[Rfam]
RNA sequence: GCCAGCCCUAGGGUAGCUCCCGAAAAGCCGAUUCCCUUCAUCGGCCUGGGCUGGCGAUCUUCUGAAGGG
Numbered sequence: 001g002c003c004a005g006c007c008c009u010a011g012g013g014u015a016g017c018u019c020c021c022g023a024a025a026a027g028c029c030g031a032u033u034c035c036c037u038u039c040a041u042c043g044g045c046c047u048g049g050g051c052u053g054g055c056g057a058u059c060u061u062c063u064g065a066a067g068g069g
Stems, first nucleotide, its partner, number of pairs: 001055008011021003027045005035069004
RNA: int-alpA RNA